Clostridiales-3 RNA: a 247-nucleotide RNA. Pairs were carried over by alignment from the consensus structure, which is taken from published work. The family's RNA type in Rfam is small RNA.
[Rfam]
RNA sequence: UAGUAGUCUGAUGGAUUGAGAAAUGAAGGACGAGAAGUUGAAGCGGAUUCAGCGAGAGUGGAAUGAUAAAUAUGUUGCGUAUGAUAAUAACCCAUAGAGGACAGAGCGACUGUCCUUAUCCUCAAAACUGGCUAAAGGAGGAGAUAGUGUUUCAAACAUUGAAAUGCGUCAUGUGCCUGUUCCCGAAGAUGAUAACAUCUUCUUGUACACGGGGCAGUAGGUCGUAAUAAGAAAUCGUGUACCUACA
Numbered sequence: 001u002a003g004u005a006g007u008c009u010g011a012u013g014g015a016u017u018g019a020g021a022a023a024u025g026a027a028g029g030a031c032g033a034g035a036a037g038u039u040g041a042a043g044c045g046g047a048u049u050c051a052g053c054g055a056g057a058g059u060g061g062a063a064u065g066a067u068a069a070a071u072a073u074g075u076u077g078c079g080u081a082u083g084a085u086a087a088u089a090a091c092c093c094a095u096a097g098a099g100g101a102c103a104g105a106g107c108g109a110c111u112g113u114c115c116u117u118a119u120c121c122u123c124a125a126a127a128c129u130g131g132c133u134a135a136a137g138g139a140g141g142a143g144a145u146a147g148u149g150u151u152u153c154a155a156a157c158a159u160u161g162a163a164a165u166g167c168g169u170c171a172u173g174u175g176c177c178u179g180u181u182c183c184c185g186a187a188g189a190u191g192a193u194a195a196c197a198u199c200u201u202c203u204u205g206u207a208c209a210c211g212g213g214g215c216a217g218u219a220g221g222u223c224g225u226a227a228u229a230a231g232a233a234a235u236c237g238u239g240u241a242c243c244u245a246c247a
Stems, first nucleotide, its partner, number of pairs: 006031004015024003093173003097117008119142005143170003147167002150164005186201006205242007